[Rfam]
RNA: Nematode snoRNA ceN22
RNA sequence: AUUGCAAGCCCAUGACGAUACUGUCUAGGAAGUGCCGGCUGAAUCAUCAGUGAUUAUAGAAUGGACGCUGAGGCUA
Numbered sequence: 001a002u003u004g005c006a007a008g009c010c011c012a013u014g015a016c017g018a019u020a021c022u023g024u025c026u027a028g029g030a031a032g033u034g035c036c037g038g039c040u041g042a043a044u045c046a047u048c049a050g051u052g053a054u055u056a057u058a059g060a061a062u063g064g065a066c067g068c069u070g071a072g073g074c075u076a
Stems, first nucleotide, its partner, number of pairs: 007075004